[Rfam]
Selenocysteine transfer RNA: a 93-nucleotide RNA sequence from Helicobacter monodelphidis.
The family is grouped with related families in Rfam's "tRNA clan".
Rfam 15.1 lists 4,211 matches to the family in 3,344 species.
Gene Ontology term of the family: triplet codon-amino acid adaptor activity.
Taxonomically the source falls in Helicobacter (Bacteria, Campylobacterota, Campylobacterales, Helicobacteraceae).
A search with the family's covariance model found it, with a score of 52 bits.
RNA sequence: GGAGGGUAUGUGUUUCUGGUGAACACCGUAGGCUUCAAACCUAUUGAGUGGCUAGGUGUCUGGCUGUUGGGGAGUUCGAUUCUUCCACCUUCC
Numbered sequence: 001g002g003a004g005g006g007u008a009u010g011u012g013u014u015u016c017u018g019g020u021g022a023a024c025a026c027c028g029u030a031g032g033c034u035u036c037a038a039a040c041c042u043a044u045u046g047a048g049u050g051g052c053u054a055g056g057u058g059u060c061u062g063g064c065u066g067u068u069g070g071g072g073a074g075u076u077c078g079a080u081u082c083u084u085c086c087a088c089c090u091u092c093c
Stems, first nucleotide, its partner, number of pairs: 001093007010026005016021001028044005047068007071085004